A member of the RNA family "Metazoan signal recognition particle RNA" from Phytophthora cactorum, 305 nucleotides long. The literature on the family includes a 2002 paper in Curr Opin Struct Biol by Wild et al., "Towards the structure of the mammalian signal recognition particle".
[Rfam]
RNA sequence: GCCGGGUUGGGUGGCGCCAACUUGUUACGGAUACGCUUCUGUCCGGGUAGUAAGGUGUGAGGGUUGUGGUAUGCGUUGCCGUGUCACUAUUCCCAGGAUGUGGAUGGUGCGUCCAUCUCAAACCAGGAGUCGACAUUGGGGCAUUGUCGUAAGGCAGUGCACCGAGGUCACUAAGGAAAGGUGUAACGCCCCAGGCUGGUUAACAGAGCAGGGAAAAGCCUUCGCUCUUGGUAGUGGGAGGAUUUCGUACCAGAAUUCUGAUGUGCCAUGGCUUCGCUGUAAGCCGUAACUCAAUCACCUUGCGA
Numbered sequence: 001g002c003c004g005g006g007u008u009g010g011g012u013g014g015c016g017c018c019a020a021c022u023u024g025u026u027a028c029g030g031a032u033a034c035g036c037u038u039c040u041g042u043c044c045g046g047g048u049a050g051u052a053a054g055g056u057g058u059g060a061g062g063g064u065u066g067u068g069g070u071a072u073g074c075g076u077u078g079c080c081g082u083g084u085c086a087c088u089a090u091u092c093c094c095a096g097g098a099u100g101u102g103g104a105u106g107g108u109g110c111g112u113c114c115a116u117c118u119c120a121a122a123c124c125a126g127g128a129g130u131c132g133a134c135a136u137u138g139g140g141g142c143a144u145u146g147u148c149g150u151a152a153g154g155c156a157g158u159g160c161a162c163c164g165a166g167g168u169c170a171c172u173a174a175g176g177a178a179a180g181g182u183g184u185a186a187c188g189c190c191c192c193a194g195g196c197u198g199g200u201u202a203a204c205a206g207a208g209c210a211g212g213g214a215a216a217a218g219c220c221u222u223c224g225c226u227c228u229u230g231g232u233a234g235u236g237g238g239a240g241g242a243u244u245u246c247g248u249a250c251c252a253g254a255a256u257u258c259u260g261a262u263g264u265g266c267c268a269u270g271g272c273u274u275c276g277c278u279g280u281a282a283g284c285c286g287u288a289a290c291u292c293a294a295u296c297a298c299c300u301u302g303c304g305a
Stems, first nucleotide, its partner, number of pairs: 001048003004023007028045005050303008061292010072281004079271005085265002090263001093260001095259005101253001105252007113241002116239005122232009132169003136165004141160008171175001178222005189213003196206003
Background: It scores 144 bits against the family's covariance model. Clan: SRP clan. Rfam links the family to the GO terms SRP-dependent cotranslational protein targeting to membrane, signal sequence recognition and signal recognition particle, endoplasmic reticulum targeting. The signal recognition particle (SRP) is a universally conserved ribonucleoprotein.